BsrG: a 260-nucleotide sequence from Metabacillus harenarius.
[Rfam]
RNA sequence: UGCGAUGGUUAGGUAAACUCAAGGGUGGUCAGCGUUACCCCGUAUGAAAGGGGGUGAUGCUUACAGAUGACAGUAUUUCAAAGUUUAAUGCUAAUGAUUGCAUUUGCUAGUUUGGUGUUGUCAAUCGUAUCGUUUAUAGACAAAAAUAAAUAACCCACCCUUGAGCUUAACCGGCGAUAGGUGAGUUAUCUUUAAACCUCGCUGAUCCCCUUGAUGGGAACCUAGCUAUUGUAUGACUGUUUGGUGUUCCAGCACCAAAC
Number, nucleotide and partner (000 for none) at each position: 001u233002g232003c231004g230005a229006u000007g227008g226009u225010u000011a223012g000013g000014u204015a000016a199017a000018c165019u164020c163021a162022a161023g160024g159025g158026u000027g155028g154029u153030c000031a000032g000033c000034g000035u056036u000037a000038c053039c052040c051041c050042g000043u000044a000045u000046g000047a000048a000049a000050g041051g040052g039053g038054g000055u000056g035057a000058u000059g000060c000061u000062u000063a000064c000065a000066g000067a000068u000069g134070a133071c132072a000073g130074u129075a128076u000077u000078u000079c000080a000081a000082a000083g000084u000085u000086u000087a000088a000089u000090g000091c000092u000093a000094a000095u000096g000097a000098u000099u000100g000101c000102a000103u000104u000105u000106g126107c000108u124109a000110g000111u000112u000113u000114g000115g000116u000117g000118u000119u000120g000121u000122c000123a000124a108125u000126c106127g000128u075129a074130u073131c000132g071133u070134u069135u000136a000137u000138a000139g000140a000141c000142a000143a000144a000145a000146a000147u000148a000149a000150a000151u000152a000153a029154c028155c027156c000157a000158c025159c024160c023161u022162u021163g020164a019165g018166c000167u000168u000169a000170a000171c000172c000173g000174g000175c000176g000177a000178u000179a000180g000181g000182u000183g000184a000185g000186u000187u000188a000189u000190c000191u000192u000193u000194a000195a000196a000197c000198c000199u016200c000201g000202c000203u000204g014205a000206u219207c218208c217209c216210c000211u000212u000213g000214a000215u000216g209217g208218g207219a206220a000221c000222c000223u011224a000225g009226c008227u007228a000229u005230u004231g003232u002233a001234u000235g000236a000237c000238u000239g260240u259241u258242u257243g256244g255245u254246g253247u252248u000249c000250c000251a000252g247253c246254a245255c244256c243257a242258a241259a240260c239
The family's RNA type in Rfam is small RNA. On this family, see Saito et al., Gene 2008: "Novel small RNA-encoding genes in the intergenic regions of Bacillus subtilis". The family's consensus secondary structure was predicted with WAR. Rfam links the family to the GO terms autolysis and toxin activity. A search with the family's covariance model found it, with a score of 92 bits.